RNA sequence: UUUUCCCAAAACAACGAAAGCCCUACCUCUCUUCCGUCCUUGCGGCUCCAUUGACCGCGCCAGUGUGAAUCAGAAAAACAGUUGAAAC
Numbered sequence: 001u002u003u004u005c006c007c008a009a010a011a012c013a014a015c016g017a018a019a020g021c022c023c024u025a026c027c028u029c030u031c032u033u034c035c036g037u038c039c040u041u042g043c044g045g046c047u048c049c050a051u052u053g054a055c056c057g058c059g060c061c062a063g064u065g066u067g068a069a070u071c072a073g074a075a076a077a078a079c080a081g082u083u084g085a086a087a088c
Stems, first nucleotide, its partner, number of pairs: 035067002039063002041059005047053001
BsrC: an 88-nucleotide RNA sequence from Paenibacillus sp. MY03. The family's RNA type in Rfam is small RNA. On this family, see Saito et al., Gene 2008: "Novel small RNA-encoding genes in the intergenic regions of Bacillus subtilis".